Notes
The record is a 95-nucleotide RNA, which matches "malK-III RNA" in Rfam. It is one of the family's seed sequences. The base pairs follow the family's consensus structure, which is taken from published work.
RNA sequence: CCAGCACUCGUCACGUACGGGGUCCGUCCACGCUCCACCUCGGUGGGCUGGAUGCAAGGAUCCGCGAUGACGGUCGGGCGAGGAGUAGGCGCAUG
Numbered sequence: 001c002c003a004g005c006a007c008u009c010g011u012c013a014c015g016u017a018c019g020g021g022g023u024c025c026g027u028c029c030a031c032g033c034u035c036c037a038c039c040u041c042g043g044u045g046g047g048c049u050g051g052a053u054g055c056a057a058g059g060a061u062c063c064g065c066g067a068u069g070a071c072g073g074u075c076g077g078g079c080g081a082g083g084a085g086u087a088g089g090c091g092c093a094u095g
Base pairs, nucleotide, nucleotide: 014066015065016064020063021062022061023060024059025058026053027052028051034047035046036045037044